[Rfam]
RNA sequence: AAGCGGGUCACGCGAGACCCGGAGCCGGGGACCCACAGGUCCCACCGGCCCGCAACCAUUGGGGCCAGGGGUGAAUCGGUGCGCCGCGUACCCCCCUCGCGGCAGCCGUAGGGCACGCUUCUCAGCCCGAACCCGACAGCUAACCCGGUAGGCGGCCGCGAGAAGAAGA
Numbered sequence: 001a002a003g004c005g006g007g008u009c010a011c012g013c014g015a016g017a018c019c020c021g022g023a024g025c026c027g028g029g030g031a032c033c034c035a036c037a038g039g040u041c042c043c044a045c046c047g048g049c050c051c052g053c054a055a056c057c058a059u060u061g062g063g064g065c066c067a068g069g070g071g072u073g074a075a076u077c078g079g080u081g082c083g084c085c086g087c088g089u090a091c092c093c094c095c096c097u098c099g100c101g102g103c104a105g106c107c108g109u110a111g112g113g114c115a116c117g118c119u120u121c122u123c124a125g126c127c128c129g130a131a132c133c134c135g136a137c138a139g140c141u142a143a144c145c146c147g148g149u150a151g152g153c154g155g156c157c158g159c160g161a162g163a164a165g166a167a168g169a
Stems, first nucleotide, its partner, number of pairs: 004022001024149006034068001069134003077108004111128004